Annotation
Rfam assigns this 119-nucleotide RNA from Paeonia delavayi to the family "Plastid-psbA-1 3UTR RNA". Lineage of the source: Eukaryota > Embryophyta > Mesangiospermae > Saxifragales > Paeonia. Plastid psbA-1 is a non-coding RNA (ncRNA) present in plastids.
RNA sequence: UGUCGAAGCUCCAUCUACAAAUGGAUAAAAUGUAGGUCUUAGUCUUAAUGUGUAUGAGUUAAAAUGAAAGGAGCAAUACCAAAUUCCUUGUUCUAUCAAGGGGUUGGUAUUGCUCCUUU
Numbered sequence: 001u002g003u004c005g006a007a008g009c010u011c012c013a014u015c016u017a018c019a020a021a022u023g024g025a026u027a028a029a030a031u032g033u034a035g036g037u038c039u040u041a042g043u044c045u046u047a048a049u050g051u052g053u054a055u056g057a058g059u060u061a062a063a064a065u066g067a068a069a070g071g072a073g074c075a076a077u078a079c080c081a082a083a084u085u086c087c088u089u090g091u092u093c094u095a096u097c098a099a100g101g102g103g104u105u106g107g108u109a110u111u112g113c114u115c116c117u118u119u
Stems, first nucleotide, its partner, number of pairs: 010025005067119013082105002085102005